[Rfam]
RNA sequence: UGUAAGCGUCGCAACUGGCGUUGGGUGGGUAACCACCAGGAAGCGGCACAAGCAAGUCAAACCACGGAUCGCACGCCUGGGCCAUGGUC
Numbered sequence: 001u002g003u004a005a006g007c008g009u010c011g012c013a014a015c016u017g018g019c020g021u022u023g024g025g026u027g028g029g030u031a032a033c034c035a036c037c038a039g040g041a042a043g044c045g046g047c048a049c050a051a052g053c054a055a056g057u058c059a060a061a062c063c064a065c066g067g068a069u070c071g072c073a074c075g076c077c078u079g080g081g082c083c084a085u086g087g088u089c
Base pairs, nucleotide, nucleotide: 003052006049008047009046010045011044012043015040016039017077018076019075020074021073025036026035027034028033067083069081070080
About this RNA: ZMP/ZTP riboswitch aptamer (pfl RNA motif): an 89-nucleotide RNA sequence from Arthrobacter sp. Edens01.